[Rfam]
RNA: Betaproteobacteria transfer-messenger RNA
Organism: Georgfuchsia toluolica
RNA sequence: ACCUGGCGGAAUCCUUGAAAAUAAGGCCUUUCGGCCCCAUAAUUGUUUUAUGGUUGUAAUUCCGGCAAUCUGGAGGCGUCUUGGACGCGGGUUCGAUUCCCGCCACCUCCACCUAAGCGUAUCGGAGUGCUCUUAGGUGGGGGUGUACUGGUUUCGACAGGGCGGGCAAAGGUGAGCAGGCAACUCGUCAGGCGAUCGACGUUAAUGAAGCAAAUCUCUAAACGCCAACGAUGAGCGUUUCGCACUGGCCGCUUAAGGCCUAUGCCGAGGCUGCUUGAGCCUUGUAACCAAAGAAAAGCCGGUGGGGACUUCGGUCCCCAUCGUCA
Numbered sequence: 001a002c003c004u005g006g007c008g009g010a011a012u013c014c015u016u017g018a019a020a021a022u023a024a025g026g027c028c029u030u031u032c033g034g035c036c037c038c039a040u041a042a043u044u045g046u047u048u049u050a051u052g053g054u055u056g057u058a059a060u061u062c063c064g065g066c067a068a069u070c071u072g073g074a075g076g077c078g079u080c081u082u083g084g085a086c087g088c089g090g091g092u093u094c095g096a097u098u099c100c101c102g103c104c105a106c107c108u109c110c111a112c113c114u115a116a117g118c119g120u121a122u123c124g125g126a127g128u129g130c131u132c133u134u135a136g137g138u139g140g141g142g143g144u145g146u147a148c149u150g151g152u153u154u155c156g157a158c159a160g161g162g163c164g165g166g167c168a169a170a171g172g173u174g175a176g177c178a179g180g181c182a183a184c185u186c187g188u189c190a191g192g193c194g195a196u197c198g199a200c201g202u203u204a205a206u207g208a209a210g211c212a213a214a215u216c217u218c219u220a221a222a223c224g225c226c227a228a229c230g231a232u233g234a235g236c237g238u239u240u241c242g243c244a245c246u247g248g249c250c251g252c253u254u255a256a257g258g259c260c261u262a263u264g265c266c267g268a269g270g271c272u273g274c275u276u277g278a279g280c281c282u283u284g285u286a287a288c289c290a291a292a293g294a295a296a297a298g299c300c301g302g303u304g305g306g307g308a309c310u311u312c313g314g315u316c317c318c319c320a321u322c323g324u325c326a
Stems, first nucleotide, its partner, number of pairs: 052185005062180002065177002068173004077164007087103005104145007186201004268282004273299004302321008